[Rfam]
RNA sequence: UUGUAAAUAAAGUAAAAUGCUUUUAUAAGUCAGCAUAUUGGGCUGAUGUUUCUACAAUGUACCUAUACAUUUCUAAAAGUAUACAUAGAAAGGAG
Numbered sequence: 001u002u003g004u005a006a007a008u009a010a011a012g013u014a015a016a017a018u019g020c021u022u023u024u025a026u027a028a029g030u031c032a033g034c035a036u037a038u039u040g041g042g043c044u045g046a047u048g049u050u051u052c053u054a055c056a057a058u059g060u061a062c063c064u065a066u067a068c069a070u071u072u073c074u075a076a077a078a079g080u081a082u083a084c085a086u087a088g089a090a091a092g093g094a095g
Stems, first nucleotide, its partner, number of pairs: 018081008029047006056071006

Purine riboswitch aptamer: a 95-nucleotide RNA sequence from Spiroplasma diminutum. It scores 45 bits against the family's covariance model. The family has 133 seed sequences and 4,097 matches in Rfam 15.1. Gene Ontology term of the family: purine nucleobase biosynthetic process. NCBI's taxonomy places the organism under Bacteria, Mycoplasmatota, Mollicutes, Spiroplasma, Spiroplasma diminutum.